Shown here is a 112-nucleotide RNA from Hucho hucho, a member of the family "skipping-rope RNA".
The match comes from Rfam's covariance-model search (39 bits).
The organism belongs to Hucho, within Eukaryota.
It is annotated as a small RNA.
RNA sequence: AUUAAGAGAGGUGGAAACUUAGGGGUUCCAUGUGCCUUGGACUUUUAGCUAUUUUUUGCAGGGUGUAACUAGUUCAGGAAAGAUGCGGGGAGGUUCCCUCCCGCCUCUUAAU
Numbered sequence: 001a002u003u004a005a006g007a008g009a010g011g012u013g014g015a016a017a018c019u020u021a022g023g024g025g026u027u028c029c030a031u032g033u034g035c036c037u038u039g040g041a042c043u044u045u046u047a048g049c050u051a052u053u054u055u056u057u058g059c060a061g062g063g064u065g066u067a068a069c070u071a072g073u074u075c076a077g078g079a080a081a082g083a084u085g086c087g088g089g090g091a092g093g094u095u096c097c098c099u100c101c102c103g104c105c106u107c108u109u110a111a112u
Stems, first nucleotide, its partner, number of pairs: 001112008011031005022097004033080001034064006085104005